[Rfam]
RNA sequence: CCGGAGCAUCGAAUCGUCGCGCCGCUCGCAAGAGAGUGAGGAAAGUCCGGACACCGCAGGACAGAAGACCGGGUAAUUCCCGGGGUGCCGUCUGUAAUGGACGGCGCACGGAAAGUGCCACAGAGAAUAUACCGCCUGCCUUCGGGCAGGUAAGGGUGAAAAGGCGGGGUAAGAGCCCACCGCUCCUUCAGCGAUGAAGGAGGCACGGUAAACCCUCUUCGGUGCAAUCCCACAUAGGCAGCCGUUAAGGUCGGUCCGGCCGUGGCUGCGGGUAGGGAGCAAAGACCCGGCAGGGAACUGCACGGGCAAGAUAAAUGACGAUUCUCGACAGAAUCCGGCUUAUAGAUGCUCCGGGUGC
Numbered sequence: 001c002c003g004g005a006g007c008a009u010c011g012a013a014u015c016g017u018c019g020c021g022c023c024g025c026u027c028g029c030a031a032g033a034g035a036g037u038g039a040g041g042a043a044a045g046u047c048c049g050g051a052c053a054c055c056g057c058a059g060g061a062c063a064g065a066a067g068a069c070c071g072g073g074u075a076a077u078u079c080c081c082g083g084g085g086u087g088c089c090g091u092c093u094g095u096a097a098u099g100g101a102c103g104g105c106g107c108a109c110g111g112a113a114a115g116u117g118c119c120a121c122a123g124a125g126a127a128u129a130u131a132c133c134g135c136c137u138g139c140c141u142u143c144g145g146g147c148a149g150g151u152a153a154g155g156g157u158g159a160a161a162a163g164g165c166g167g168g169g170u171a172a173g174a175g176c177c178c179a180c181c182g183c184u185c186c187u188u189c190a191g192c193g194a195u196g197a198a199g200g201a202g203g204c205a206c207g208g209u210a211a212a213c214c215c216u217c218u219u220c221g222g223u224g225c226a227a228u229c230c231c232a233c234a235u236a237g238g239c240a241g242c243c244g245u246u247a248a249g250g251u252c253g254g255u256c257c258g259g260c261c262g263u264g265g266c267u268g269c270g271g272g273u274a275g276g277g278a279g280c281a282a283a284g285a286c287c288c289g290g291c292a293g294g295g296a297a298c299u300g301c302a303c304g305g306g307c308a309a310g311a312u313a314a315a316u317g318a319c320g321a322u323u324c325u326c327g328a329c330a331g332a333a334u335c336c337g338g339c340u341u342a343u344a345g346a347u348g349c350u351c352c353g354g355g356u357g358c
Base pairs, nucleotide, nucleotide: 001354002353003352004351005350006349007348008347009346010345011343012323013322014321015320016319017318018317020038021037022036025034026033027032043341044340045339047338048337049336050335051334052224053223054222055221059257060256061255062254064220065219066218067217068216069083070082071081072080073079084109085107086106087105088104089103090102091101092100093099110215111214115213116212117209118208119207132155133154134151135150136149137148138147139146140145163181164180166178167177168176182204183202184201185200186199187198188197189196190195228278229277230276231275238269239268240267241266242265243264249261250260251259252258286306287305288304289303290301291300292299293298
This 358-nucleotide RNA sequence from Leptonema illini belongs to the Rfam family "Bacterial RNase P class A". The match comes from Rfam's covariance-model search (278 bits). NCBI's taxonomy places the organism under Bacteria, Pseudomonadati, Spirochaetota, Leptonema, Leptonema illini.